The family of this 127-nucleotide sequence from Catagonus wagneri is "Small nucleolar RNA SNORD22". Lineage of the source: Eukaryota > Craniata > Gnathostomata > Dipnotetrapodomorpha > Catagonus. The family's RNA type in Rfam is C/D-box small nucleolar RNA. Rfam 15.1 lists 1,081 matches to the family in 414 species. Gene Ontology terms of the family: RNA processing and nucleolus.

RNA sequence: UCCCUGUGAAAAAACAUUCACACAUCUUACCUCCUGUCCUAGUCCCAGAACCUGUAGAGGUGAACCCACCGGGGCUGGCUGGGGGGAGAAGAGGAAGGCUUAUUCCAGAAAGAACCAUAUGAGGGAA
Number, nucleotide and partner (000 for none) at each position: 001u126002c125003c124004c123005u000006g000007u000008g000009a000010a000011a000012a000013a000014a000015c000016a000017u000018u000019c000020a000021c000022a000023c000024a000025u000026c000027u000028u000029a000030c000031c000032u000033c000034c000035u000036g000037u000038c000039c000040u000041a000042g000043u000044c000045c000046c000047a000048g000049a000050a000051c000052c000053u000054g000055u000056a000057g000058a000059g000060g000061u000062g000063a000064a000065c000066c000067c000068a000069c000070c000071g000072g000073g000074g000075c000076u000077g000078g000079c000080u000081g000082g000083g000084g000085g000086g000087a000088g000089a000090a000091g000092a000093g000094g000095a000096a000097g000098g000099c000100u000101u000102a000103u000104u000105c000106c000107a000108g000109a000110a000111a000112g000113a000114a000115c000116c000117a000118u000119a000120u000121g000122a000123g004124g003125g002126a001127a000